The family of this 79-nucleotide sequence from Methylomonas lenta is "c-di-GMP-I riboswitch aptamer". NCBI's taxonomy places the organism under Bacteria, Pseudomonadota, Gammaproteobacteria, Methylococcaceae, Methylomonas.
RNA sequence: CAAAACUAAAACUAAACCUAUUGUAAAGUAGGGGCAGAAAGUCGCGGUUCCUUCCCAGAAGGAAAGCCGGAUUGCCGAA
Numbered sequence: 001c002a003a004a005a006c007u008a009a010a011a012c013u014a015a016a017c018c019u020a021u022u023g024u025a026a027a028g029u030a031g032g033g034g035c036a037g038a039a040a041g042u043c044g045c046g047g048u049u050c051c052u053u054c055c056c057a058g059a060a061g062g063a064a065a066g067c068c069g070g071a072u073u074g075c076c077g078a079a
Stems, first nucleotide, its partner, number of pairs: 012037002017032006040073004045069003048064007